[Rfam]
Notes
The record is an 85-nucleotide RNA from Ochotona princeps, which matches "Small nucleolar RNA SNORD87" in Rfam. The base pairs follow the family's consensus structure. The literature on the family includes a 2002 paper in Gene by Gogolevskaya et al., "U87 RNA, a novel C/D box small nucleolar RNA from mammalian cells".
RNA sequence: GCUGGCACAAUGAUGACUUGAAUUUUUGCCGUUUACCCAGCUGAGGGUUUCUUUGAUGAAAUUACAUCAAAACUGAGAUGCCAGU
Numbered sequence: 001g002c003u004g005g006c007a008c009a010a011u012g013a014u015g016a017c018u019u020g021a022a023u024u025u026u027u028g029c030c031g032u033u034u035a036c037c038c039a040g041c042u043g044a045g046g047g048u049u050u051c052u053u054u055g056a057u058g059a060a061a062u063u064a065c066a067u068c069a070a071a072a073c074u075g076a077g078a079u080g081c082c083a084g085u
Stems, first nucleotide, its partner, number of pairs: 001085007